[Rfam]
RNA sequence: GUUGUUGCUGUAUCUAGUUCGCUUGGUGCAGGUCGGGAAAUCGGUUUAUUCAUUUUCUUCUUGUUUGGUUCUUGUGAAUGUAUGUUGACCAUGUGAAUUGGAUUCCCGCCUUGCAUCAACUGAAUCGGAUACAGCAGUGAGU
Numbered sequence: 001g002u003u004g005u006u007g008c009u010g011u012a013u014c015u016a017g018u019u020c021g022c023u024u025g026g027u028g029c030a031g032g033u034c035g036g037g038a039a040a041u042c043g044g045u046u047u048a049u050u051c052a053u054u055u056u057c058u059u060c061u062u063g064u065u066u067g068g069u070u071c072u073u074g075u076g077a078a079u080g081u082a083u084g085u086u087g088a089c090c091a092u093g094u095g096a097a098u099u100g101g102a103u104u105c106c107c108g109c110c111u112u113g114c115a116u117c118a119a120c121u122g123a124a125u126c127g128g129a130u131a132c133a134g135c136a137g138u139g140a141g142u
Stems, first nucleotide, its partner, number of pairs: 013129002017125004023119010034108005041101009

Annotation: This 142-nucleotide RNA from Papaver nudicaule belongs to the Rfam family "MIR168 microRNA precursor family". A reference for the family is Reinhart et al. (2002), "MicroRNAs in plants", Genes Dev. Taxonomically the source falls in Papaver (Eukaryota, Streptophyta, Embryophyta, Mesangiospermae). Gene Ontology terms of the family: RISC complex and miRNA-mediated post-transcriptional gene silencing.